[Rfam]
RNA: Small nucleolar RNA SNORA4
RNA sequence: CUCCCAAAAGUUAAUUUGGGGGAAGGUUUUCCUAAUAACCUUUACCAAUUUGGGCUAUUUGGGAGAGUAACAUAAAGACCACACUCCACAGUGGACUAUAUCAGUUAACACGUAGUUCACUACUAUUUUGUGGCCUACAUU
Numbered sequence: 001c002u003c004c005c006a007a008a009a010g011u012u013a014a015u016u017u018g019g020g021g022g023a024a025g026g027u028u029u030u031c032c033u034a035a036u037a038a039c040c041u042u043u044a045c046c047a048a049u050u051u052g053g054g055c056u057a058u059u060u061g062g063g064a065g066a067g068u069a070a071c072a073u074a075a076a077g078a079c080c081a082c083a084c085u086c087c088a089c090a091g092u093g094g095a096c097u098a099u100a101u102c103a104g105u106u107a108a109c110a111c112g113u114a115g116u117u118c119a120c121u122a123c124u125a126u127u128u129u130g131u132g133g134c135c136u137a138c139a140u141u
Base pairs, nucleotide, nucleotide: 004062005061006060007059008058012057013056015054016053017052018050019049021046022045024043025040026039027038028037076136077135079133080132081131082130083129090121091120092119093118094117095116096115097114098113099112101110